The record is a 128-nucleotide RNA sequence from Ochotona princeps, which matches "Small nucleolar RNA SNORA77" in Rfam. Rfam's curators write: ACA63 (SNORA77) is a member of the H/ACA class of snoRNAs that guide the sites of modification of uridines to pseudouridines. The family's consensus secondary structure was predicted with RNAalifold. On this family, see Schattner et al., RNA 2006: "A computational screen for mammalian pseudouridylation guide H/ACA RNAs". Gene Ontology terms of the family: RNA processing and nucleolus. Lineage of the source: Eukaryota > Chordata > Amniota > Theria > Ochotona.

[Rfam]
RNA sequence: GCAGACGCACUCUGCACCUGCCGCAGCCACUGGCAGGUGCUUUUUCCGUCUGCCAGAGAAGCCUUCCGGGUGCCGUGGCCACUUCGACUCCACCUGUCGGGUGAUGCGGCUGCUCCGGGGACACAGGG
Dot-bracket structure: ((((((.......((((((((.(......).).))))))).......))))))...........(((((((((((((..(((((..............))))).)))))).)).))))).........